[Rfam]
RNA sequence: GGGAGUAGAUAGGUGCUGGUGUGCCUACUGGUCUUCAAAACCAGCUUCUCGUCUAAAAAGGCGAGGGGUGGGUUCGAUUCCCACAUACUCCC
Numbered sequence: 001g002g003g004a005g006u007a008g009a010u011a012g013g014u015g016c017u018g019g020u021g022u023g024c025c026u027a028c029u030g031g032u033c034u035u036c037a038a039a040a041c042c043a044g045c046u047u048c049u050c051g052u053c054u055a056a057a058a059a060g061g062c063g064a065g066g067g068g069u070g071g072g073u074u075c076g077a078u079u080c081c082c083a084c085a086u087a088c089u090c091c092c
Stems, first nucleotide, its partner, number of pairs: 001092007008084001011026006027046001028044005048065005069083004
Record summary:
A member of the RNA family "Selenocysteine transfer RNA" from Thermoanaerobacterium sp. RBIITD, 92 nucleotides long. Its Rfam clan is "tRNA clan". The family's consensus secondary structure is taken from published work. Its family is annotated with triplet codon-amino acid adaptor activity in the Gene Ontology. The literature on the family includes a 2000 paper in FEBS Lett by Mizutani and Goto, "Eukaryotic selenocysteine tRNA has the 9/4 secondary structure".